[Rfam]
RNA: Group II catalytic intron D1-D4-1
RNA sequence: UAACCCUACUUGUGAGAGCAGGCUGAACGUACAGAAGUCAGCAGACGCCGUAGUACGUAAGCUGUUGCAACAGCUUACGGAAGGGC
Numbered sequence: 001u002a003a004c005c006c007u008a009c010u011u012g013u014g015a016g017a018g019c020a021g022g023c024u025g026a027a028c029g030u031a032c033a034g035a036a037g038u039c040a041g042c043a044g045a046c047g048c049c050g051u052a053g054u055a056c057g058u059a060a061g062c063u064g065u066u067g068c069a070a071c072a073g074c075u076u077a078c079g080g081a082a083g084g085g086c
Stems, first nucleotide, its partner, number of pairs: 001025002005022003009018003037046003047086003056079008
Dot-bracket structure: ((..(((.(((....))).))).))...........(((....)))(((......((((((((........))))))))....)))